[Rfam]
RNA: MIR7486 microRNA precursor family
Organism: Gossypium lobatum
RNA sequence: CACGUCAGCGCGCUUUGUUGACGUGGACACAAAUAGCGUCCACGUUAGCGCUAUUUGUCUCCACGUCAGCAAAGUGCGCUGACGUGG
Numbered sequence: 001c002a003c004g005u006c007a008g009c010g011c012g013c014u015u016u017g018u019u020g021a022c023g024u025g026g027a028c029a030c031a032a033a034u035a036g037c038g039u040c041c042a043c044g045u046u047a048g049c050g051c052u053a054u055u056u057g058u059c060u061c062c063a064c065g066u067c068a069g070c071a072a073a074g075u076g077c078g079c080u081g082a083c084g085u086g087g
Stems, first nucleotide, its partner, number of pairs: 001086021023064005029058010